[Rfam]
RNA sequence: ACAGUCGAUUAGGCAAUCGCUGUUUUUUUUCUAAAAUAGAGGAAAGUCCGGGCUUCGCAGGGCAGGAUGCUAGGUAACGCCUAGGAGGCGCGAGCCUACGGAAAGUGCCACAGAAAAUAUACCGCCUAAUGUGUCUAAAAACAGCACAAACAGGUAAGGGUGAAAUGGUGCGGUAAGAGCGCACCGCGCUUUUGGCAACAAAAGUGGCAGGGUAAACCCCAUCCGAAGCAAGACCAAAUAGGGAAACACGCUUCAACGCACAUGCGGCCCGCAUGGGUUUCCGGGUAGGUUGCUAGAGGAUAACGGUGACGUUAUUCCCAGAGGAAUGGUUGCCACCCCGCAAGGGGAUACAAAACCCGGCUUAUCGAUUGACUGUUCUG
Dot-bracket structure: ((((((((((((((((((.(((((((......)))))))....[[[.[[[[[((((...[[[[.((((((((((.....)))))(((((....)))).)((...(((((............((((((..(..................)..))))..)).......((((((.......))))))(((((((((....)))))))).)..)))..)))))))))))))...((((......((((((.............(((((.]]]]))))).)))))).....))))......((((((((....))))))))..........))))))).....................]]]]]]]].).))))))))))....
Numbered sequence: 001a002c003a004g005u006c007g008a009u010u011a012g013g014c015a016a017u018c019g020c021u022g023u024u025u026u027u028u029u030u031c032u033a034a035a036a037u038a039g040a041g042g043a044a045a046g047u048c049c050g051g052g053c054u055u056c057g058c059a060g061g062g063c064a065g066g067a068u069g070c071u072a073g074g075u076a077a078c079g080c081c082u083a084g085g086a087g088g089c090g091c092g093a094g095c096c097u098a099c100g101g102a103a104a105g106u107g108c109c110a111c112a113g114a115a116a117a118u119a120u121a122c123c124g125c126c127u128a129a130u131g132u133g134u135c136u137a138a139a140a141a142c143a144g145c146a147c148a149a150a151c152a153g154g155u156a157a158g159g160g161u162g163a164a165a166u167g168g169u170g171c172g173g174u175a176a177g178a179g180c181g182c183a184c185c186g187c188g189c190u191u192u193u194g195g196c197a198a199c200a201a202a203a204g205u206g207g208c209a210g211g212g213u214a215a216a217c218c219c220c221a222u223c224c225g226a227a228g229c230a231a232g233a234c235c236a237a238a239u240a241g242g243g244a245a246a247c248a249c250g251c252u253u254c255a256a257c258g259c260a261c262a263u264g265c266g267g268c269c270c271g272c273a274u275g276g277g278u279u280u281c282c283g284g285g286u287a288g289g290u291u292g293c294u295a296g297a298g299g300a301u302a303a304c305g306g307u308g309a310c311g312u313u314a315u316u317c318c319c320a321g322a323g324g325a326a327u328g329g330u331u332g333c334c335a336c337c338c339c340g341c342a343a344g345g346g347g348a349u350a351c352a353a354a355a356c357c358c359g360g361c362u363u364a365u366c367g368a369u370u371g372a373c374u375g376u377u378c379u380g
Stems, first nucleotide, its partner, number of pairs: 001376010011365001012334007020039007044363003048360005053228004060270004065224005070084005085099001086097004100219002105217002107213003122159002124155004130149001167185006186208001187206008232291004242282006261275005298317008
Bacterial RNase P class A: a 380-nucleotide RNA sequence from Thioflexithrix psekupsensis.
It is annotated as a ribozyme.
Gene Ontology terms of the family: tRNA processing, ribonuclease P activity and dimeric ribonuclease P complex.
Pairs were carried over by alignment from the consensus structure, which is taken from published work.